[Rfam]
RNA sequence: UCACCGGCCAACGGUGGGGUCUGAAGGAAGCCGAAGGGGGAAUCUGGAACAUAGCGCAAGCGAACCGAGGUUGGCUCGUCAGGUGGGUAACCUUGCACUGAGUGGGAAAGCCCAAAAGCUGGAUAACCUGGGGAGUUAAGACGGAUGGGUUCAGAUUCAGGCAGGCAGGC
Dot-bracket structure: (((((.......)))))............(((.....(...((((((..(((............(((......(((..((((((((((..(((..........)))...))))............))))))..))).....))))))...)))))).....).....)))
Numbered sequence: 001u002c003a004c005c006g007g008c009c010a011a012c013g014g015u016g017g018g019g020u021c022u023g024a025a026g027g028a029a030g031c032c033g034a035a036g037g038g039g040g041a042a043u044c045u046g047g048a049a050c051a052u053a054g055c056g057c058a059a060g061c062g063a064a065c066c067g068a069g070g071u072u073g074g075c076u077c078g079u080c081a082g083g084u085g086g087g088u089a090a091c092c093u094u095g096c097a098c099u100g101a102g103u104g105g106g107a108a109a110g111c112c113c114a115a116a117a118g119c120u121g122g123a124u125a126a127c128c129u130g131g132g133g134a135g136u137u138a139a140g141a142c143g144g145a146u147g148g149g150u151u152c153a154g155a156u157u158c159a160g161g162c163a164g165g166c167a168g169g170c
Stems, first nucleotide, its partner, number of pairs: 001017005030170003038162001042156006050147003065144003074136003079131006085113004091106003

The family of this 170-nucleotide RNA from Thermincola carboxydiphila is "Group II catalytic intron D1-D4-3".
Group II introns are found in rRNA, tRNA and mRNA of organelles in fungi, plants and protists, and also in mRNA in bacteria.
It scores 54 bits against the family's covariance model.